[Rfam]
RNA sequence: UGACCUCGGAUCAGGUAGGGAUACCCGCUGAACUUAAGCAUAUCAAUAAGCGGAGGAAAAGAAACCAACCGGGAUUGCCUCAGUAACGGCGAGUGAAGCGGCAAGAGCUCAAAUUUGAAAGCUGGCUCCUUCGGGGUCCGCAUUGUAAUUUGCAGAGGAUGCUUCGGGUGCGGCCCCUGUCUAAGUACCCUGGAACGGGUCGUCAGAGAGGGUGAGAAUCCCGUCUGGGAUAGGGUGUCCGCGCCCGUGUGAAGCUCCUUCGACGAGUCGAGUUGUUUGGGAAUGCAGCUCUAAAUGGGUGGUAAAUUUCAUCUAAAGCUAAAUACUGGCCGGAGACCGAUAGCGCACAAGUAGAGUGAUCGAAAGAUGAAAAGCACUUUGAAAAGAGAGUUAAAAAGCACGUGAAAUUGUUGAAAGGGAAG
Numbered sequence: 001u002g003a004c005c006u007c008g009g010a011u012c013a014g015g016u017a018g019g020g021a022u023a024c025c026c027g028c029u030g031a032a033c034u035u036a037a038g039c040a041u042a043u044c045a046a047u048a049a050g051c052g053g054a055g056g057a058a059a060a061g062a063a064a065c066c067a068a069c070c071g072g073g074a075u076u077g078c079c080u081c082a083g084u085a086a087c088g089g090c091g092a093g094u095g096a097a098g099c100g101g102c103a104a105g106a107g108c109u110c111a112a113a114u115u116u117g118a119a120a121g122c123u124g125g126c127u128c129c130u131u132c133g134g135g136g137u138c139c140g141c142a143u144u145g146u147a148a149u150u151u152g153c154a155g156a157g158g159a160u161g162c163u164u165c166g167g168g169u170g171c172g173g174c175c176c177c178u179g180u181c182u183a184a185g186u187a188c189c190c191u192g193g194a195a196c197g198g199g200u201c202g203u204c205a206g207a208g209a210g211g212g213u214g215a216g217a218a219u220c221c222c223g224u225c226u227g228g229g230a231u232a233g234g235g236u237g238u239c240c241g242c243g244c245c246c247g248u249g250u251g252a253a254g255c256u257c258c259u260u261c262g263a264c265g266a267g268u269c270g271a272g273u274u275g276u277u278u279g280g281g282a283a284u285g286c287a288g289c290u291c292u293a294a295a296u297g298g299g300u301g302g303u304a305a306a307u308u309u310c311a312u313c314u315a316a317a318g319c320u321a322a323a324u325a326c327u328g329g330c331c332g333g334a335g336a337c338c339g340a341u342a343g344c345g346c347a348c349a350a351g352u353a354g355a356g357u358g359a360u361c362g363a364a365a366g367a368u369g370a371a372a373a374g375c376a377c378u379u380u381g382a383a384a385a386g387a388g389a390g391u392u393a394a395a396a397a398g399c400a401c402g403u404g405a406a407a408u409u410g411u412u413g414a415a416a417g418g419g420a421a422g
Base pairs, nucleotide, nucleotide: 024055025053026052027051028050029049035042036041065072066071076103077102078101079100086094087093106320107319108318109317112150113149114148115147118144119143121141122140124138125137126136127135155261156260157258158257159256162254163253164252165251167245168244169243170242171241172240173239175235176234177233178232179231180230181229185201187200188199189198190197204208211221212220270291271290272289273288274287275286276285297314298313299312300311301310354361355360377388378387379386380385

Shown here is a 422-nucleotide part of an RNA from Aspergillus bombycis, a member of the family "Eukaryotic large subunit ribosomal RNA". It scores 3331 bits against the family's covariance model. A reference for the family is Cannone et al. (2002), "The comparative RNA web (CRW) site: an online database of comparative sequence and structure information for ribosomal, intron, and other RNAs", BMC Bioinformatics.